[Rfam]
RNA sequence: CGCUUCUCAUGAGCUCCUCUCCGUCAGUCCAGUGGCGGUGUAUGGAUUCGCACGAGAAGUAGAGUCAAAAUCACAGUUAAUCAGGUGUUCUCAGUGUUUUGGGACGCACCGAUGUCUGAUGUGAGACACUU
Dot-bracket structure: ..((((((....(((((...(((((........))))).....)))...))..))))))...........(((((.............((((.(.....)))))...............))))).......
Numbered sequence: 001c002g003c004u005u006c007u008c009a010u011g012a013g014c015u016c017c018u019c020u021c022c023g024u025c026a027g028u029c030c031a032g033u034g035g036c037g038g039u040g041u042a043u044g045g046a047u048u049c050g051c052a053c054g055a056g057a058a059g060u061a062g063a064g065u066c067a068a069a070a071u072c073a074c075a076g077u078u079a080a081u082c083a084g085g086u087g088u089u090c091u092c093a094g095u096g097u098u099u100u101g102g103g104a105c106g107c108a109c110c111g112a113u114g115u116c117u118g119a120u121g122u123g124a125g126a127c128a129c130u131u
Stems, first nucleotide, its partner, number of pairs: 003059006013051002015046003021038005071124005089104004094100001